Source information: A member of the RNA family "Potassium channel RNA editing signal" from Cyprinodon variegatus, 114 nucleotides long. Lineage of the source: Eukaryota > Deuterostomia > Craniata > Cyprinodontoidei > Cyprinodon.

RNA sequence: GUGGGUUAUGGAGACAUGGUCCCAAUCACAAUUGGGGGCAAGAUUGUUGGAUCUCUGUGCGCAAUCGCUGGAGUCUUAACAAUUGCCCUCCCAGUGCCUGUCAUUGUGUCCAAC
Number, nucleotide and partner (000 for none) at each position: 001g114002u113003g000004g111005g110006u000007u108008a107009u106010g105011g104012a000013g102014a101015c100016a099017u000018g097019g000020u000021c094022c000023c000024a000025a000026u000027c000028a000029c000030a000031a000032u000033u000034g000035g000036g000037g077038g076039c000040a074041a000042g000043a000044u000045u000046g000047u000048u000049g000050g062051a000052u000053c000054u000055c000056u000057g000058u000059g000060c000061g000062c050063a000064a000065u000066c000067g000068c000069u000070g000071g000072a000073g000074u040075c000076u038077u037078a000079a000080c000081a000082a000083u000084u000085g000086c000087c000088c000089u000090c000091c000092c000093a000094g021095u000096g000097c018098c000099u016100g015101u014102c013103a000104u011105u010106g009107u008108g007109u000110c005111c004112a000113a002114c001

A search with the family's covariance model found it, with a score of 106 bits. Rfam's curators write: This family represents a group of sequences related to the human potassium channel Kv1.1 hairpin element which directs the efficient modification of an adenosine to inosine by an adenosine deaminase acting on RNA (ADAR).